[Rfam]
RNA: Small Cajal body specific RNA 6
RNA sequence: GGUCAAUGAUGUGAUGUAAAAGGUCUGAAUCUCAGACCCCACCUCCCAUUUUGGCUCCCAGCAGCUCCUGCUCUUAGCUCCCAUCAUGCUCAAGUGGAGCAGUGGUGGUCCCAGCAGCUGCUGACAGAUAGGAAGUGACAUCACAGUAAGAGCCUGUAGAGAGAUCCUAUUGGCUCAUUGAUAACGUCCAACAGAUCCAAUCCGCCUGGAGCUUAGGUGGGGGUGGGGCCUGAGCACUGAUCUCACUCUUCUACUGAGACC
Numbered sequence: 001g002g003u004c005a006a007u008g009a010u011g012u013g014a015u016g017u018a019a020a021a022g023g024u025c026u027g028a029a030u031c032u033c034a035g036a037c038c039c040c041a042c043c044u045c046c047c048a049u050u051u052u053g054g055c056u057c058c059c060a061g062c063a064g065c066u067c068c069u070g071c072u073c074u075u076a077g078c079u080c081c082c083a084u085c086a087u088g089c090u091c092a093a094g095u096g097g098a099g100c101a102g103u104g105g106u107g108g109u110c111c112c113a114g115c116a117g118c119u120g121c122u123g124a125c126a127g128a129u130a131g132g133a134a135g136u137g138a139c140a141u142c143a144c145a146g147u148a149a150g151a152g153c154c155u156g157u158a159g160a161g162a163g164a165u166c167c168u169a170u171u172g173g174c175u176c177a178u179u180g181a182u183a184a185c186g187u188c189c190a191a192c193a194g195a196u197c198c199a200a201u202c203c204g205c206c207u208g209g210a211g212c213u214u215a216g217g218u219g220g221g222g223g224u225g226g227g228g229c230c231u232g233a234g235c236a237c238u239g240a241u242c243u244c245a246c247u248c249u250u251c252u253a254c255u256g257a258g259a260c261c
Base pairs, nucleotide, nucleotide: 001261002260003259004258034243035242036241038239041224042223043222044221045220046219055211056210057209058208059123060122061121062120063119064118065117081108082107083106084105085104086103087102089099135189137188138187139186141184150176151175152174153173154172156170157169158168159167